Shown here is a 117-nucleotide RNA sequence from a Streptosporangiales bacterium, a member of the family "mraW RNA". A search with the family's covariance model found it, with a score of 62 bits. The source organism's lineage runs through Bacteria, Bacillati, Actinomycetota, Actinomycetes and Streptosporangiales. By type it is a cis-regulatory element. Pairs were carried over by alignment from the consensus structure, which is taken from published work.

RNA sequence: GCACGUUCGUUCGGCGAGGUCUCCACCCGCGCUCUGCCAGCUGGCGCAUCUUCCCCGGCGCCAGGUGGCGAUCUUCCCCAAACGCGGAUGGGGACCUGGCCGGAUCGGGAUCAGCGA
Dot-bracket structure: .........((((((..((.(((((.(((((.(.(((((.(((((((..........))))))).)))))..........).))))).))))).))..)))))).............
Numbered sequence: 001g002c003a004c005g006u007u008c009g010u011u012c013g014g015c016g017a018g019g020u021c022u023c024c025a026c027c028c029g030c031g032c033u034c035u036g037c038c039a040g041c042u043g044g045c046g047c048a049u050c051u052u053c054c055c056c057g058g059c060g061c062c063a064g065g066u067g068g069c070g071a072u073c074u075u076c077c078c079c080a081a082a083c084g085c086g087g088a089u090g091g092g093g094a095c096c097u098g099g100c101c102g103g104a105u106c107g108g109g110a111u112c113a114g115c116g117a
Stems, first nucleotide, its partner, number of pairs: 010104006018096002021093005027087005033081001035070005041064007